T-box leader: a 268-nucleotide sequence from a Syntrophomonadaceae bacterium.
Its family is annotated with tRNA binding in the Gene Ontology.
Lineage of the source: Bacteria > Bacillati > Bacillota > Clostridia > Syntrophomonadaceae.
From the family's description: Uncharged tRNA acts as the effector for transcription antitermination of genes in the T-box leader family.
Rfam classes the family as a cis-regulatory leader.
A reference for the family is Grundy et al. (1994), "Interaction between the acceptor end of tRNA and the T box stimulates antitermination in the Bacillus subtilis tyrS gene: a new role for the discriminator base", J Bacteriol.
RNA sequence: UUAAAGGAAAUGAUGGGGAAAAGUAGGUCAGCGGAACCUGCCAGGGAGAGGGUGCCUUAGACUGGAAGCGCUCUCGAGGGAAAGCUGAGUGAAGUUCACCCCUGAUUCGGCAGGCUGAAACUCGUGCUAGCAAGUAGGUUUGCCCGGACACUUCCACCGUUAAAAGGAAGGAGGUAUCGGACUUAGAGUCCCGUACCUUGAAAGAGGGGGCCUUAACCAGGCCAACUUGGGUGGUACCGCGGCAAGCAUUUAGCUUCUCGUCCCUAUU
Numbered sequence: 001u002u003a004a005a006g007g008a009a010a011u012g013a014u015g016g017g018g019a020a021a022a023g024u025a026g027g028u029c030a031g032c033g034g035a036a037c038c039u040g041c042c043a044g045g046g047a048g049a050g051g052g053u054g055c056c057u058u059a060g061a062c063u064g065g066a067a068g069c070g071c072u073c074u075c076g077a078g079g080g081a082a083a084g085c086u087g088a089g090u091g092a093a094g095u096u097c098a099c100c101c102c103u104g105a106u107u108c109g110g111c112a113g114g115c116u117g118a119a120a121c122u123c124g125u126g127c128u129a130g131c132a133a134g135u136a137g138g139u140u141u142g143c144c145c146g147g148a149c150a151c152u153u154c155c156a157c158c159g160u161u162a163a164a165a166g167g168a169a170g171g172a173g174g175u176a177u178c179g180g181a182c183u184u185a186g187a188g189u190c191c192c193g194u195a196c197c198u199u200g201a202a203a204g205a206g207g208g209g210g211c212c213u214u215a216a217c218c219a220g221g222c223c224a225a226c227u228u229g230g231g232u233g234g235u236a237c238c239g240c241g242g243c244a245a246g247c248a249u250u251u252a253g254c255u256u257c258u259c260g261u262c263c264c265u266a267u268u
Stems, first nucleotide, its partner, number of pairs: 007107002015102004026090001028088004037079003048075008110143007145159003209223005229264003239261004